[Rfam]
RNA sequence: UGGAUCAAUGAUGACUCUCCUAGGGUGUUUGAAUUAAGGAUUCUGAUUAAACUCUAUAACUUUGAGGUCAUU
Numbered sequence: 001u002g003g004a005u006c007a008a009u010g011a012u013g014a015c016u017c018u019c020c021u022a023g024g025g026u027g028u029u030u031g032a033a034u035u036a037a038g039g040a041u042u043c044u045g046a047u048u049a050a051a052c053u054c055u056a057u058a059a060c061u062u063u064g065a066g067g068u069c070a071u072u
Base pairs, nucleotide, nucleotide: 003069004068005067006066
RNA: Small nucleolar RNA SNORD113/SNORD114 family
Organism: Vicugna pacos